[Rfam]
RNA sequence: UGCGUCACCGAGGGGAGUCCCGCCAAGGGGCUGAGAGACUGAUGGGCGGCGCCGCUGUGGGCGCCGCCGGUGCAGUGACCCUUUGAACCUGAUCCGGAUCAUGCCGGCGCAGGGACGGACCGAUUCCAUCGC
Dot-bracket structure: .......(((((((.((((((.....))))).......(((...............................))))..)))).....((((..((((......))))..))))..)))..............
This 132-nucleotide sequence from Lampropedia cohaerens belongs to the Rfam family "TPP riboswitch aptamer (THI element)". The base pairs follow the family's consensus structure, which is taken from published work. NCBI's taxonomy places the organism under Bacteria, Pseudomonadati, Pseudomonadota, Betaproteobacteria, Lampropedia.